[Rfam]
RNA sequence: UAUAUUUGCGCCCUGGCAGAAAAGCUGUCAAUACAUAAAAAUCAUUAAAAUUAAUAUUGGAAUG
Numbered sequence: 001u002a003u004a005u006u007u008g009c010g011c012c013c014u015g016g017c018a019g020a021a022a023a024g025c026u027g028u029c030a031a032u033a034c035a036u037a038a039a040a041a042u043c044a045u046u047a048a049a050a051u052u053a054a055u056a057u058u059g060g061a062a063u064g
Stems, first nucleotide, its partner, number of pairs: 014030006
The record is a 64-nucleotide RNA sequence from Salinimicrobium terrae, which matches "S15-Flavobacteria ribosomal protein leader" in Rfam. On this family, see Eckert and Weinberg, BMC Microbiol 2020: "Discovery of 20 novel ribosomal leader candidates in bacteria and archaea". The family is grouped with related families in Rfam's "Ribosomal Protein S15 Leader clan". By type it is a cis-regulatory leader. Rfam's curators put it in the seed alignment.